[Rfam]
Nucleotides: 175
Base pairs, nucleotide, nucleotide: 003173004172005171006170007169008168010166017029018028019027033122034121035066036065037064038063061120062119070097071096102118103117104116105115106114124158125157126156
Number, partner (000 for none) and nucleotide at each position: 001000a002000c003173g004172c005171g006170c007169u008168g009000g010166c011000g012000g013000g014000a015000c016000u017029c018028g019027g020000u021000g022000a023000a024000a025000u026000u027019c028018c029017g030000a031000a032000c033122c034121g035066g036065c037064g038063g039000u040000g041000a042000u043000c044000c045000g046000a047000u048000c049000g050000u051000u052000g053000a054000u055000c056000g057000g058000u059000a060000a061120g062119c063038c064037c065036g066035c067000g068000a069000c070097c071096c072000g073000g074000a075000c076000g077000u078000c079000g080000u081000u082000a083000c084000c085000c086000g087000a088000c089000g090000a091000c092000g093000g094000a095000c096071g097070g098000u099000g100000g101000a102118c103117c104116u105115g106114g107000u108000g109000a110000a111000a112000a113000c114106c115105c116104a117103g118102g119062g120061c121034c122033g123000a124158c125157g126156g127000u128000u129000g130000a131000u132000c133000a134000g135000g136000c137000a138000g139000c140000a141000g142000c143000c144000c145000g146000a147000u148000c149000a150000g151000a152000c153000a154000g155000u156126c157125c158124g159000g160000a161000u162000g163000g164000g165000a166010g167000a168008c169007a170006g171005c172004g173003c174000g175000c
The family of this 175-nucleotide RNA from Paractinoplanes abujensis is "FMN riboswitch aptamer (RFN element)".
The match comes from Rfam's covariance-model search (85 bits).
Lineage of the source: Bacteria > Bacillati > Actinomycetes > Micromonosporaceae > Paractinoplanes.
The base pairs follow the family's consensus structure, which is taken from published work.